Record summary: Shown here is a 102-nucleotide sequence from Isachenkonia alkalipeptolytica, a member of the family "Purine riboswitch aptamer". The match comes from Rfam's covariance-model search (90 bits). Its family is annotated with purine nucleobase biosynthetic process in the Gene Ontology. Lineage of the source: Bacteria > Bacillati > Bacillota > Clostridiaceae > Isachenkonia. From the family's description: Riboswitches are metabolite binding domains within certain messenger RNAs that serve as precision sensors for their corresponding targets. Allosteric rearrangement of mRNA structure is mediated by ligand binding, and this results in modulation of gene expression. A class of riboswitches that selectively recognises guanine and becomes saturated at concentrations as low as 5 nM. In Bacillus subtilis, this mRNA motif is located on at least five separate transcriptional units that together encode 17 genes that are mostly involved in purine transport and purine nucleotide biosynthesis. It has also been shown that some members of this family are specific for adenine instead. Hence this family are termed purine riboswitches.

RNA sequence: UAACAAUUUAAAAGAACCGCUCAUAUAAAUUCGAUAAUAUGGAUCGAGAGUUUCUACCGAAUGACCGUAAAUCAUUCGACUAUGGGUGAAUUUAUCUACGGG
Numbered sequence: 001u002a003a004c005a006a007u008u009u010a011a012a013a014g015a016a017c018c019g020c021u022c023a024u025a026u027a028a029a030u031u032c033g034a035u036a037a038u039a040u041g042g043a044u045c046g047a048g049a050g051u052u053u054c055u056a057c058c059g060a061a062u063g064a065c066c067g068u069a070a071a072u073c074a075u076u077c078g079a080c081u082a083u084g085g086g087u088g089a090a091u092u093u094a095u096c097u098a099c100g101g102g
Base pairs, nucleotide, nucleotide: 018088019087020086021085022084023083024082025081030048031047032046033045034044035043058078059077060076061075062074063073064072